SAM riboswitch aptamer (S box leader): a 94-nucleotide RNA sequence from Oscillibacter hominis. The SAM riboswitch is found upstream of a number of genes which code for proteins involved in methionine or cysteine biosynthesis in Gram-positive bacteria.

[Rfam]
RNA sequence: CCCUUAUCAAGAGUGGCGGAGGGAACGGCCCUGUGAAACCACGGCAACCUGCACUGCAAGGUGCCAAAUCCGACGGUCUAUCGAAAGAUGAGGA
Numbered sequence: 001c002c003c004u005u006a007u008c009a010a011g012a013g014u015g016g017c018g019g020a021g022g023g024a025a026c027g028g029c030c031c032u033g034u035g036a037a038a039c040c041a042c043g044g045c046a047a048c049c050u051g052c053a054c055u056g057c058a059a060g061g062u063g064c065c066a067a068a069u070c071c072g073a074c075g076g077u078c079u080a081u082c083g084a085a086a087g088a089u090g091a092g093g094a
Stems, first nucleotide, its partner, number of pairs: 002093007013042004021031003026072003043065004048061002050058003069086001074083003
Dot-bracket structure: .(((((((....((((....(((..[[[))).......))))((((.(((((...))).))))))...(]]].(((....)))..)))))))).
Notes
The base pairs follow the family's consensus structure, which is taken from published work. Clan: SAM clan.